[Rfam]
mir-1299 microRNA precursor family: an 83-nucleotide RNA sequence from Homo sapiens. Its family is annotated with miRNA-mediated post-transcriptional gene silencing and RISC complex in the Gene Ontology. Rfam 15.1 lists 113 matches to the family in 8 species.

RNA sequence: CCUCGUAGCAGUGUUCUGGAAACCUAUGUGAUGGACAAACUUUCAGACCCUCACAGCAGUGUUCUGGAAUCCUAUGUGAGGGA
Numbered sequence: 001c002c003u004c005g006u007a008g009c010a011g012u013g014u015u016c017u018g019g020a021a022a023c024c025u026a027u028g029u030g031a032u033g034g035a036c037a038a039a040c041u042u043u044c045a046g047a048c049c050c051u052c053a054c055a056g057c058a059g060u061g062u063u064c065u066g067g068a069a070u071c072c073u074a075u076g077u078g079a080g081g082g083a
Stems, first nucleotide, its partner, number of pairs: 001081007010073002013070009024059002027056001028054003033049002